[Rfam]
RNA sequence: UUGCUUGUGAGAUGAUUUUAGGAGUUCUAAACGAGUAGAUACUUACUCAAACCAACUUUACUCCUGGGAAGGUCUGAGGCAUGCUCCAUUAGGAAUCCUUUAGGAAGGGAACGUUCGAGUUUGAACGUGAAACUGUACUGGAAGCAACUUGUUUUCCGUCGAAUUCUUACAAUGGAACAAGAAACUUCUUGAAAGUGGAUUCCGUAAGAUCUUGGCGUUCGAAAUACGGUUUCGAGCAGCGGUUUUAGUGCGAUAAUCAAAUAACCCAAUUCAGACUACUACACGAGCAA
Numbered sequence: 001u002u003g004c005u006u007g008u009g010a011g012a013u014g015a016u017u018u019u020a021g022g023a024g025u026u027c028u029a030a031a032c033g034a035g036u037a038g039a040u041a042c043u044u045a046c047u048c049a050a051a052c053c054a055a056c057u058u059u060a061c062u063c064c065u066g067g068g069a070a071g072g073u074c075u076g077a078g079g080c081a082u083g084c085u086c087c088a089u090u091a092g093g094a095a096u097c098c099u100u101u102a103g104g105a106a107g108g109g110a111a112c113g114u115u116c117g118a119g120u121u122u123g124a125a126c127g128u129g130a131a132a133c134u135g136u137a138c139u140g141g142a143a144g145c146a147a148c149u150u151g152u153u154u155u156c157c158g159u160c161g162a163a164u165u166c167u168u169a170c171a172a173u174g175g176a177a178c179a180a181g182a183a184a185c186u187u188c189u190u191g192a193a194a195g196u197g198g199a200u201u202c203c204g205u206a207a208g209a210u211c212u213u214g215g216c217g218u219u220c221g222a223a224a225u226a227c228g229g230u231u232u233c234g235a236g237c238a239g240c241g242g243u244u245u246u247a248g249u250g251c252g253a254u255a256a257u258c259a260a261a262u263a264a265c266c267c268a269a270u271u272c273a274g275a276c277u278a279c280u281a282c283a284c285g286a287g288c289a290a
Stems, first nucleotide, its partner, number of pairs: 001290004007284003013260001017256002020065005033048006074274005083237004096110005111128006129233007150217002

The record is a 290-nucleotide RNA from Panagrolaimus sp. ES5, which matches "Nuclear RNase P" in Rfam.
Clan: RNaseP clan.
Taxonomically the source falls in Panagrolaimus (Eukaryota, Bilateria, Rhabditida, Tylenchina).
Rfam's curators write: Ribonuclease P (RNase P) is a ubiquitous endoribonuclease, found in archaea, bacteria and eukarya as well as chloroplasts and mitochondria.
By type it is a ribozyme.